[Rfam]
RNA: Eukaryotic large subunit ribosomal RNA, nucleotides 5329 to 5740
RNA sequence: GAUGUAUUGUUGCCACGGUAAUCCUGCUCAGUAGGAGAGGAACCACAGACAUUUGGUGUAUGUGCUUAGCUGAGGAGCCAAUGGGGCGAAGCUAUCAUCUAUGGGAUUAUGACUGAAGCCUCUAAAUCAGAAUCCCGCCCAGGAGGAACUAUCUACCACAGCGCGUUUGGCCUCAGAUUGUGGACAACGUCCUGACCUACCGGACAGGUCGGUGCGGAGUGCACCUUGUCCUGGAAACAGGUGCAGCCAGAAAGGCAGCGUCCCCUCGCCGCUCACACACCACAGGUUCGUGGGGAGCCUGGUGCUAAACCAUUCGUAGACGACCUGCUUCUGGGUCGGGGUUUCGUACGUAGCAGAGCAGCUCCCUCGCUGCGAUCUAUUGAAAGUCAGUCCUGUAGAGUUUCUCGUUCUU
Numbered sequence: 001g002a003u004g005u006a007u008u009g010u011u012g013c014c015a016c017g018g019u020a021a022u023c024c025u026g027c028u029c030a031g032u033a034g035g036a037g038a039g040g041a042a043c044c045a046c047a048g049a050c051a052u053u054u055g056g057u058g059u060a061u062g063u064g065c066u067u068a069g070c071u072g073a074g075g076a077g078c079c080a081a082u083g084g085g086g087c088g089a090a091g092c093u094a095u096c097a098u099c100u101a102u103g104g105g106a107u108u109a110u111g112a113c114u115g116a117a118g119c120c121u122c123u124a125a126a127u128c129a130g131a132a133u134c135c136c137g138c139c140c141a142g143g144a145g146g147a148a149c150u151a152u153c154u155a156c157c158a159c160a161g162c163g164c165g166u167u168u169g170g171c172c173u174c175a176g177a178u179u180g181u182g183g184a185c186a187a188c189g190u191c192c193u194g195a196c197c198u199a200c201c202g203g204a205c206a207g208g209u210c211g212g213u214g215c216g217g218a219g220u221g222c223a224c225c226u227u228g229u230c231c232u233g234g235a236a237a238c239a240g241g242u243g244c245a246g247c248c249a250g251a252a253a254g255g256c257a258g259c260g261u262c263c264c265c266u267c268g269c270c271g272c273u274c275a276c277a278c279a280c281c282a283c284a285g286g287u288u289c290g291u292g293g294g295g296a297g298c299c300u301g302g303u304g305c306u307a308a309a310c311c312a313u314u315c316g317u318a319g320a321c322g323a324c325c326u327g328c329u330u331c332u333g334g335g336u337c338g339g340g341g342u343u344u345c346g347u348a349c350g351u352a353g354c355a356g357a358g359c360a361g362c363u364c365c366c367u368c369g370c371u372g373c374g375a376u377c378u379a380u381u382g383a384a385a386g387u388c389a390g391u392c393c394u395g396u397a398g399a400g401u402u403u404c405u406c407g408u409u410c411u412u
Base pairs, nucleotide, nucleotide: 006152007151009149010148011147013145017140018139047100048099049098054094055093056092061088062087063086065084066081067080069078070077071076103136104135105134110129111128112127114125160303162301163300165298166297167296168295308409309408310407313327316324333402334401336399337398339393340392341391343386344385350380351379352378353377355376358373359372360371361370362369